[Rfam]
Notes
EGFOA RNA: a 136-nucleotide RNA sequence from Bacillus sp. 2_A_57_CT2.
RNA sequence: CUUUUUCCAGAUCUAUUCGGAUAAACCGAAUAACUCGUCGUAGUCAAGCAUUGCUUGAGGUGGCACAGGGAAGAGCUGUGGUGGCUCAGUUCGUAAAGCUACACCUGGAGAACUUUGAUUUUAAUAUAACCUUUGA
Numbered sequence: 001c002u003u004u005u006u007c008c009a010g011a012u013c014u015a016u017u018c019g020g021a022u023a024a025a026c027c028g029a030a031u032a033a034c035u036c037g038u039c040g041u042a043g044u045c046a047a048g049c050a051u052u053g054c055u056u057g058a059g060g061u062g063g064c065a066c067a068g069g070g071a072a073g074a075g076c077u078g079u080g081g082u083g084g085c086u087c088a089g090u091u092c093g094u095a096a097a098g099c100u101a102c103a104c105c106u107g108g109a110g111a112a113c114u115u116u117g118a119u120u121u122u123a124a125u126a127u128a129a130c131c132u133u134u135g136a
Stems, first nucleotide, its partner, number of pairs: 006109005037104002040102004044058005064135002067132003073087004088114005

Taxonomically the source falls in Bacillus (Bacteria, Bacillota, Bacilli, Bacillaceae). The family's consensus secondary structure is taken from published work.